Shown here is a 365-nucleotide RNA from Pipistrellus kuhlii, a member of the family "ncRNA Repressor of NFAT (nuclear factor of activated T cells)". The literature on the family includes a 2005 paper in Science by Willingham et al., "A strategy for probing the function of noncoding RNAs finds a repressor of NFAT".

[Rfam]
RNA sequence: CGGAGCAAAUGGCAUCGGGAACUUUGAAACUUUCCUUUGUAUGUUGCAUGAAUCCAUGGAAGAAAAUCUCUUUUAAUGAGGAGUGAUGUAGUUACAAACUCUCCAGAGCCAUAAUUAGAGCAAACUAAUUGAAGUUGUGUUUUGACACACUUUCCAAACUCACGGGCGCCGGUGACAUAUUCACAGCUCUCCGCGCACAGCCGUGGCGGCGGCGGAAUCAUUAGGCUAAUCACGCUUAUUUGCAUUCUCAUCAUGCCGGCAGCUCGCCUUAAACACCGUUUCCACCACCGCUCCUCUGCCUAAGUUUCCACGGAAAGAUAUUAACAGUCGUUAUUAGUGCUCUGGUGGAAUGUUAACGUUAAAGA
Number, nucleotide and partner (000 for none) at each position: 001c000002g000003g000004a000005g000006c000007a000008a000009a000010u000011g000012g000013c000014a000015u000016c000017g000018g000019g000020a000021a000022c000023u000024u000025u000026g000027a000028a000029a000030c000031u000032u000033u000034c000035c000036u000037u000038u000039g000040u000041a000042u000043g000044u000045u000046g000047c358048a000049u356050g000051a354052a000053u349054c348055c347056a346057u345058g000059g000060a000061a341062g340063a000064a000065a000066a000067u000068c083069u082070c081071u080072u079073u078074u000075a000076a000077u000078g073079a072080g071081g070082a069083g068084u000085g000086a000087u000088g334089u333090a332091g331092u330093u000094a328095c327096a000097a000098a000099c108100u107101c106102u000103c000104c000105a000106g101107a100108g099109c000110c000111a000112u000113a000114a000115u000116u000117a000118g293119a292120g291121c290122a000123a000124a000125c000126u000127a000128a000129u000130u000131g153132a152133a151134g150135u000136u149137g148138u147139g146140u145141u000142u000143u000144g000145a140146c139147a138148c137149a136150c134151u133152u132153u131154c000155c000156a000157a000158a000159c000160u000161c000162a000163c000164g000165g268166g267167c000168g263169c262170c000171g000172g000173u000174g000175a000176c000177a000178u000179a000180u000181u000182c000183a000184c000185a000186g000187c000188u000189c000190u000191c000192c208193g207194c206195g204196c000197a000198c000199a000200g000201c000202c000203g000204u195205g000206g194207c193208g192209g000210c000211g257212g256213c255214g254215g000216a000217a000218u000219c000220a000221u000222u000223a000224g000225g243226c242227u000228a240229a239230u238231c000232a000233c000234g000235c000236u000237u000238a230239u229240u228241u000242g226243c225244a000245u000246u000247c000248u000249c000250a000251u000252c000253a000254u214255g213256c212257c211258g000259g000260c000261a000262g169263c168264u000265c000266g000267c166268c165269u000270u000271a000272a000273a000274c000275a000276c000277c000278g000279u000280u000281u000282c000283c000284a000285c000286c000287a000288c000289c000290g121291c120292u119293c118294c000295u000296c000297u000298g000299c000300c000301u000302a000303a000304g000305u000306u000307u000308c000309c000310a000311c000312g000313g000314a000315a000316a000317g000318a000319u000320a000321u000322u000323a000324a000325c000326a000327g095328u094329c000330g092331u091332u090333a089334u088335u000336a000337g000338u000339g000340c062341u061342c000343u000344g000345g057346u056347g055348g054349a053350a000351u000352g000353u000354u051355a000356a049357c000358g047359u000360u000361a000362a000363a000364g000365a000
A search with the family's covariance model found it, with a score of 364 bits.